Bacterial small signal recognition particle RNA: an 86-nucleotide sequence from Weissella paramesenteroides.
Rfam classes the family as a non-coding RNA gene.
The literature on the family includes a 2009 paper in RNA Biol by Rosenblad et al., "Kinship in the SRP RNA family".
The base pairs follow the family's consensus structure, which is taken from published work.
Rfam's curators write: The signal recognition particle (SRP) is a universally conserved ribonucleoprotein involved in the co-translational targeting of proteins to membranes.
NCBI's taxonomy places the organism under Bacteria, Bacilli, Lactobacillales, Weissella, Weissella paramesenteroides.

RNA sequence: UUCGUGGGGCAAGUGUGCACUUCGAAUCGUGUCAGGGUCGGAAGGCAGCAGCACUAAGGAGACCGUGCAUUGUGCUUCACUUCUUU
Numbered sequence: 001u002u003c004g005u006g007g008g009g010c011a012a013g014u015g016u017g018c019a020c021u022u023c024g025a026a027u028c029g030u031g032u033c034a035g036g037g038u039c040g041g042a043a044g045g046c047a048g049c050a051g052c053a054c055u056a057a058g059g060a061g062a063c064c065g066u067g068c069a070u071u072g073u074g075c076u077u078c079a080c081u082u083c084u085u086u
Stems, first nucleotide, its partner, number of pairs: 004080006010072001012071006020061004029054004037046003
Dot-bracket structure: ...(((((((.((((((..((((.....((((....(((....)))....))))...))))....)))))))..))))))......